[Rfam]
RNA sequence: UCACUGGUAACGGUGAAUCUGAAGGAAGCCCGAGGCAAAGUCCGGAACUGAACGAAAGUGAACCAGGGAUGGCCGUUACAGUAGGGUAACCCUGCCAGAUAAGGGAAAGCCCUGACUCCAGCUGUAAAGGUUUGGAUGGCAGGAUUCGGAUGAAAGUGGUGUAU
Number, nucleotide and partner (000 for none) at each position: 001u016002c015003a014004c013005u012006g011007g000008u000009a000010a000011c006012g005013g004014u003015g002016a001017a000018u000019c000020u000021g000022a000023a000024g000025g000026a000027a000028g164029c000030c000031c161032g160033a000034g000035g157036c156037a000038a000039a000040g151041u150042c149043c148044g147045g146046a000047a000048c142049u141050g140051a000052a000053c000054g000055a000056a000057a000058g000059u000060g000061a000062a000063c139064c138065a137066g000067g000068g000069a000070u000071g000072g131073c130074c129075g000076u127077u126078a125079c124080a123081g122082u121083a000084g112085g111086g110087u109088a000089a000090c105091c104092c103093u102094g000095c000096c000097a000098g000099a000100u000101a000102a093103g092104g091105g090106a000107a000108a000109g087110c086111c085112c084113u000114g000115a000116c000117u000118c000119c000120a000121g082122c081123u080124g079125u078126a077127a076128a000129g074130g073131u072132u000133u000134g000135g000136a000137u065138g064139g063140c050141a049142g048143g000144a000145u000146u045147c044148g043149g042150a041151u040152g000153a000154a000155a000156g036157u035158g000159g000160u032161g031162u000163a000164u028
Annotation
The family of this 164-nucleotide RNA sequence from Mesotoga prima is "Group II catalytic intron D1-D4-3". Group II introns are found in rRNA, tRNA and mRNA of organelles in fungi, plants and protists, and also in mRNA in bacteria. The match comes from Rfam's covariance-model search (102 bits).